[Rfam]
RNA sequence: GAGUGUCAUGUCAUUACGUCUUAUCAUGGAUACUUUAUUGCCACGUUAUUACCUUCAUUUAUGUGACACUGACGUGUUAAUGAUUAAACGUGAUGACGUGACACUCCAU
Numbered sequence: 001g002a003g004u005g006u007c008a009u010g011u012c013a014u015u016a017c018g019u020c021u022u023a024u025c026a027u028g029g030a031u032a033c034u035u036u037a038u039u040g041c042c043a044c045g046u047u048a049u050u051a052c053c054u055u056c057a058u059u060u061a062u063g064u065g066a067c068a069c070u071g072a073c074g075u076g077u078u079a080a081u082g083a084u085u086a087a088a089c090g091u092g093a094u095g096a097c098g099u100g101a102c103a104c105u106c107c108a109u
Stems, first nucleotide, its partner, number of pairs: 003104017021086001023084005029078005035072003039068002042065005048059001050057001
Annotation: This 109-nucleotide sequence from Glycine max belongs to the Rfam family "MIR4387 microRNA precursor family". The match comes from Rfam's covariance-model search (87 bits). Gene Ontology terms of the family: miRNA-mediated post-transcriptional gene silencing and RISC complex. Lineage of the source: Eukaryota > Viridiplantae > Euphyllophyta > Pentapetalae > Glycine subgen. Soja.